[Rfam]
RNA sequence: CUACUCCCUCCGUCCCAUAAUACAAGACGUUUUUUGACACUACUCUAAUGUCAAAAAGCGUCUUAGAUUAUGGGACGGAGGGAGUAA
Numbered sequence: 001c002u003a004c005u006c007c008c009u010c011c012g013u014c015c016c017a018u019a020a021u022a023c024a025a026g027a028c029g030u031u032u033u034u035u036g037a038c039a040c041u042a043c044u045c046u047a048a049u050g051u052c053a054a055a056a057a058g059c060g061u062c063u064u065a066g067a068u069u070a071u072g073g074g075a076c077g078g079a080g081g082g083a084g085u086a087a
Stems, first nucleotide, its partner, number of pairs: 003085003007081005013075005019069003024064016041047001
RNA: MIR1120/MIR1122 microRNA precursor family
Organism: Triticum aestivum